The family of this 49-nucleotide RNA sequence is "chrB-b RNA". The base pairs follow the family's consensus structure, which is taken from published work. Rfam's curators put it in the seed alignment.
[Rfam]
RNA sequence: CGGGGAUCAAGCAGCCUCCCUGCCGAAUGGCUCGCCAUCCAAGCGCUGC
Numbered sequence: 001c002g003g004g005g006a007u008c009a010a011g012c013a014g015c016c017u018c019c020c021u022g023c024c025g026a027a028u029g030g031c032u033c034g035c036c037a038u039c040c041a042a043g044c045g046c047u048g049c
Stems, first nucleotide, its partner, number of pairs: 001022006011049005027038004